Description:
Shown here is a 90-nucleotide sequence from Gaiella occulta, a member of the family "SAM riboswitch aptamer (S box leader)". Lineage of the source: Bacteria > Bacillati > Actinomycetota > Gaiellaceae > Gaiella. The family's consensus secondary structure is taken from published work.
[Rfam]
RNA sequence: UCCGCAUCGAGAGAGGCUGAGGGACCGGCCCUGUGACGCCUCGGCAACCUGCCCCCAUGGGCGACGGUGCCAAUCCCGGACGGAUGUCGA
Numbered sequence: 001u002c003c004g005c006a007u008c009g010a011g012a013g014a015g016g017c018u019g020a021g022g023g024a025c026c027g028g029c030c031c032u033g034u035g036a037c038g039c040c041u042c043g044g045c046a047a048c049c050u051g052c053c054c055c056c057a058u059g060g061g062c063g064a065c066g067g068u069g070c071c072a073a074u075c076c077c078g079g080a081c082g083g084a085u086g087u088c089g090a
Stems, first nucleotide, its partner, number of pairs: 001090002004087005013042005021031003025079004043071004048067002050063004075082001